[Rfam]
RNA sequence: AAAUCAUAUGAUGAGAAAAUAACUGCAACAAUAUGAUGGAUUAGUUUCCAUGAUUCCUAGUAUUUAAGUCUCUGAUGAUU
Numbered sequence: 001a002a003a004u005c006a007u008a009u010g011a012u013g014a015g016a017a018a019a020u021a022a023c024u025g026c027a028a029c030a031a032u033a034u035g036a037u038g039g040a041u042u043a044g045u046u047u048c049c050a051u052g053a054u055u056c057c058u059a060g061u062a063u064u065u066a067a068g069u070c071u072c073u074g075a076u077g078a079u080u
Stems, first nucleotide, its partner, number of pairs: 001080002004078003038049003
Shown here is an 80-nucleotide RNA sequence from Trifolium pratense, a member of the family "Small nucleolar RNA Z199". Taxonomically the source falls in Trifolium (Eukaryota, Streptophyta, rosids, Fabales). The family's consensus secondary structure was predicted with PFOLD. The literature on the family includes a 2003 paper in Nucleic Acids Res by Chen et al., "The high diversity of snoRNAs in plants: identification and comparative study of 120 snoRNA genes from Oryza sativa". Rfam's curators write: snoZ199 is a C/D box small nucleolar RNA, which acts as a methylation guide RNA for sites on 18S and 25S rRNA. Rice snoZ199 is reported to be homologous to Arabidopsis snoR13.